[Rfam]
The family of this 56-nucleotide sequence is "chrB-b RNA". It is annotated as a cis-regulatory element.

RNA sequence: CGGGGCCGCAGAUGCCCCGCGGCCUUCCGCCAAGACGGUGUCCCGUCCAAUUCUGC
Numbered sequence: 001c002g003g004g005g006c007c008g009c010a011g012a013u014g015c016c017c018c019g020c021g022g023c024c025u026u027c028c029g030c031c032a033a034g035a036c037g038g039u040g041u042c043c044c045g046u047c048c049a050a051u052u053c054u055g056c
Stems, first nucleotide, its partner, number of pairs: 001019006008056005034047005